[Rfam]
RNA sequence: GAGUUGGGUAGUCGUUGCAUUUCCACGAUGCCACGCGACAGUUCGUGGCCAAUGAUUUGUGAAAAUGCACCAACUAUCUGACAU
Numbered sequence: 001g002a003g004u005u006g007g008g009u010a011g012u013c014g015u016u017g018c019a020u021u022u023c024c025a026c027g028a029u030g031c032c033a034c035g036c037g038a039c040a041g042u043u044c045g046u047g048g049c050c051a052a053u054g055a056u057u058u059g060u061g062a063a064a065a066u067g068c069a070c071c072a073a074c075u076a077u078c079u080g081a082c083a084u
Stems, first nucleotide, its partner, number of pairs: 005081001006079007014071001016069007024061003028057001030049005

A member of the RNA family "mir-4989 microRNA precursor family" from Rodentolepis nana, 84 nucleotides long.